[Rfam]
RNA sequence: UCCUCUUCAACGCUGCGUUUCUAUGCUACAAACGGAGAGAUUCGAGCGCAAGCAAGAAUCUCUCAUUACUGGCAUAUGAGAAAUUCGGAGUAACUUCUUCACACCACUUACCCAAUGUCGCCUGCCCAGUGCGGGAUCGACGGGUCUGCCCGCGAGGGUCUGGCGUGACUUCACGUCUGCAAUUGGCAUCAGAAAAGCAGGGCCCGGGCCGCCCUCAUGCAUACCUUGAGUUCCUCUUGGGGGACGAUGGGAAAGAUGAGGGUUAAUGGACUCGGUGUCCCUAUGGGAGAGCCGUUGCGAAAAGAUUGUGCAGAGCACUUGAGUGCGAUACGCAGCGUCUGGACCCUGGCUGGCCUCGGCCUGUCAGGGACUUGACAAUUCAAUUCCGAUCAUUCUGUUGAGGA
Numbered sequence: 001u002c003c004u005c006u007u008c009a010a011c012g013c014u015g016c017g018u019u020u021c022u023a024u025g026c027u028a029c030a031a032a033c034g035g036a037g038a039g040a041u042u043c044g045a046g047c048g049c050a051a052g053c054a055a056g057a058a059u060c061u062c063u064c065a066u067u068a069c070u071g072g073c074a075u076a077u078g079a080g081a082a083a084u085u086c087g088g089a090g091u092a093a094c095u096u097c098u099u100c101a102c103a104c105c106a107c108u109u110a111c112c113c114a115a116u117g118u119c120g121c122c123u124g125c126c127c128a129g130u131g132c133g134g135g136a137u138c139g140a141c142g143g144g145u146c147u148g149c150c151c152g153c154g155a156g157g158g159u160c161u162g163g164c165g166u167g168a169c170u171u172c173a174c175g176u177c178u179g180c181a182a183u184u185g186g187c188a189u190c191a192g193a194a195a196a197g198c199a200g201g202g203c204c205c206g207g208g209c210c211g212c213c214c215u216c217a218u219g220c221a222u223a224c225c226u227u228g229a230g231u232u233c234c235u236c237u238u239g240g241g242g243g244a245c246g247a248u249g250g251g252a253a254a255g256a257u258g259a260g261g262g263u264u265a266a267u268g269g270a271c272u273c274g275g276u277g278u279c280c281c282u283a284u285g286g287g288a289g290a291g292c293c294g295u296u297g298c299g300a301a302a303a304g305a306u307u308g309u310g311c312a313g314a315g316c317a318c319u320u321g322a323g324u325g326c327g328a329u330a331c332g333c334a335g336c337g338u339c340u341g342g343a344c345c346c347u348g349g350c351u352g353g354c355c356u357c358g359g360c361c362u363g364u365c366a367g368g369g370a371c372u373u374g375a376c377a378a379u380u381c382a383a384u385u386c387c388g389a390u391c392a393u394u395c396u397g398u399u400g401a402g403g404a
Base pairs, nucleotide, nucleotide: 001404002403003402004401008397009396012336013335014334015333016332017331018330022076023075024074025073035064036063037062038061039060040059041058042057043056086388087387088386089385090384094313095312097310148159149158150157151156162177163176164175165174166173179309180308181307182306183305184304200293201292337376338375339374341372342371
RNA: Nuclear RNase P